[Rfam]
RNA sequence: UCUAGAACUCGAGAUAUGGGCUAAACACUGAAUAAUGUCUGGGCUACAACACAGAUUCCGACUUCUCUGUUGUUGCUGCAAUUUGAACUUGAAAAUGGUCCUUUUGAAUCUUGGACUCUCAUGAACGUUUUAGGCCUAUGUUUUAGCUUUCUAUC
Number, nucleotide and partner (000 for none) at each position: 001u000002c000003u153004a152005g151006a150007a149008c146009u145010c000011g144012a143013g142014a141015u140016a139017u138018g137019g136020g135021c133022u132023a131024a130025a129026c000027a128028c127029u000030g000031a000032a000033u000034a000035a122036u121037g120038u000039c000040u000041g000042g118043g117044c000045u115046a000047c000048a112049a111050c000051a109052c000053a000054g105055a104056u000057u000058c000059c000060g099061a000062c098063u097064u000065c000066u000067c000068u092069g000070u000071u000072g088073u087074u086075g000076c000077u000078g000079c000080a000081a000082u000083u000084u000085g000086a074087a073088c072089u000090u000091g000092a068093a000094a000095a000096u000097g063098g062099u060100c000101c000102u000103u000104u055105u054106g000107a000108a000109u051110c000111u049112u048113g000114g000115a045116c000117u043118c042119u000120c037121a036122u035123g000124a000125a000126c000127g028128u027129u025130u024131u023132a022133g021134g000135c020136c019137u018138a017139u016140g015141u014142u013143u012144u011145a009146g008147c000148u000149u007150u006151c005152u004153a003154u000155c000
RNA: MIR2912 microRNA precursor family
Organism: Populus trichocarpa